[Rfam]
RNA sequence: AGACCACUCCCUUACUCGGAUCGUCCGGCACGUUCCUGCCGGUGAAGGAGACACAU
Numbered sequence: 001a002g003a004c005c006a007c008u009c010c011c012u013u014a015c016u017c018g019g020a021u022c023g024u025c026c027g028g029c030a031c032g033u034u035c036c037u038g039c040c041g042g043u044g045a046a047g048g049a050g051a052c053a054c055a056u
Stems, first nucleotide, its partner, number of pairs: 008049003012045003025042006
Dot-bracket structure: .......(((.(((..........((((((......))))))))).))).......

Background:
Shown here is a 56-nucleotide RNA from Streptomyces pristinaespiralis, a member of the family "msiK RNA". Rfam 15.1 lists 1,374 matches to the family in 1,364 species. It is annotated as a cis-regulatory element. Taxonomically the source falls in Streptomyces pristinaespiralis (Bacteria, Bacillati, Streptomycetaceae, Streptomyces).